[Rfam]
RNA sequence: GAUAUGCGUUGAAGCGGGAGGUUGCGGCCCUUAUGCGGCCGGUUUUUCCGUGGAGUAUGUCCGAUUUUAAACCGGGCGA
Dot-bracket structure: .............(((.((((...(((((.......)))))...)))))))........((...(((......))).))
Numbered sequence: 001g002a003u004a005u006g007c008g009u010u011g012a013a014g015c016g017g018g019a020g021g022u023u024g025c026g027g028c029c030c031u032u033a034u035g036c037g038g039c040c041g042g043u044u045u046u047u048c049c050g051u052g053g054a055g056u057a058u059g060u061c062c063g064a065u066u067u068u069a070a071a072c073c074g075g076g077c078g079a
Stems, first nucleotide, its partner, number of pairs: 014051003018048004025041005060079002065076003

The family of this 79-nucleotide sequence from Ruminococcaceae bacterium CPB6 is "S10-Clostridia ribosomal protein leader".
Pairs were carried over by alignment from the consensus structure, which is taken from published work.
The match comes from Rfam's covariance-model search (51 bits).
The family's RNA type in Rfam is cis-regulatory leader.
The organism belongs to Oscillospiraceae, within Bacteria.